[Rfam]
RNA sequence: CGGUCGACAAGGCACACCCGGCGCGAGCCGGGGCCGCAAAGCCAAGGGUCCUGGAAUCCGAUGUCCCCCUGUUCCCAGGACAGCCCGGCUCCCGAA
Numbered sequence: 001c002g003g004u005c006g007a008c009a010a011g012g013c014a015c016a017c018c019c020g021g022c023g024c025g026a027g028c029c030g031g032g033g034c035c036g037c038a039a040a041g042c043c044a045a046g047g048g049u050c051c052u053g054g055a056a057u058c059c060g061a062u063g064u065c066c067c068c069c070u071g072u073u074c075c076c077a078g079g080a081c082a083g084c085c086c087g088g089c090u091c092c093c094g095a096a
Stems, first nucleotide, its partner, number of pairs: 012037002017032006040090004046085002048081007